[Rfam]
RNA sequence: UUGGGACGAAUCUGGAUUCGUCCCAAAAUUCGUCCCAAAUUUGGGACGAAUCCAGAUUCGUCCCAAAUUUGCGACGAAUCCAGAUUCGUCCCAAAUUUGCGACGAAUCUGAAUUCGUCCCAAAUUUGCGACGAAUCUGAAUUCGUCCCAAAUUUGGGACGAAAAUAU
Dot-bracket structure: ...(((((((..(((.((((((((.(.((.........)).))))))))).)))..)))))))..............((.((...(((.((.......).).)))...)).)).((((((..(((.(.(((((........))))).).)).).)))))).......
Source information: Rfam assigns this 167-nucleotide RNA sequence from Zingiber officinale to the family "Drosophila small cajal body-specific RNA PsiU2-55". Pairs were carried over by alignment from the consensus structure, which was predicted with RNAfold. Rfam links the family to the GO terms nucleolus, Cajal body and RNA processing. The match comes from Rfam's covariance-model search (56 bits). For this family Rfam cites "Novel small Cajal-body-specific RNAs identified in Drosophila: probing guide RNA function" (Deryusheva and Gall, RNA, 2013).